[Rfam]
Fluoride riboswitch aptamer (crcB RNA motif): a 62-nucleotide RNA from Erysipelothrix sp. HDW6B. For this family Rfam cites "Widespread genetic switches and toxicity resistance proteins for fluoride" (Baker et al., Science, 2012).
RNA sequence: AAAUGAAACGGCGAUGGAGUUCGCCCAAACCGCAAGAAAUUGCUGAUGACUCCUACAAGUCU
Numbered sequence: 001a002a003a004u005g006a007a008a009c010g011g012c013g014a015u016g017g018a019g020u021u022c023g024c025c026c027a028a029a030c031c032g033c034a035a036g037a038a039a040u041u042g043c044u045g046a047u048g049a050c051u052c053c054u055a056c057a058a059g060u061c062u
Stems, first nucleotide, its partner, number of pairs: 010025004016053006032043004